Rfam assigns this 55-nucleotide RNA sequence from Camelus dromedarius to the family "p27 cis-regulatory element". The literature on the family includes a 2003 paper in Hum Mol Genet by Gopfert et al., "Cell cycle-dependent translation of p27 involves a responsive element in its 5'-UTR that overlaps with a uORF". NCBI's taxonomy places the organism under Eukaryota, Gnathostomata, Laurasiatheria, Artiodactyla, Camelus. Rfam links the family to the GO term regulation of translation. Rfam describes the family as follows. This family represents a structured G/C rich element located in the 5' UTR of p27 mRNA. This element contributes to cell-cycle regulated translation and when deleted leads to a 50% drop in regulation. The element is thought to be able to form several different structures with similar free energy.

[Rfam]
RNA sequence: CCACCUUAAGGCCGCGCCCCAGCUCGGCGGGGCGGCUCCGGCGCCGCGACCAAUG
Numbered sequence: 001c002c003a004c005c006u007u008a009a010g011g012c013c014g015c016g017c018c019c020c021a022g023c024u025c026g027g028c029g030g031g032g033c034g035g036c037u038c039c040g041g042c043g044c045c046g047c048g049a050c051c052a053a054u055g
Base pairs, nucleotide, nucleotide: 009024010023012022014019027047028046029045030044031042033040034039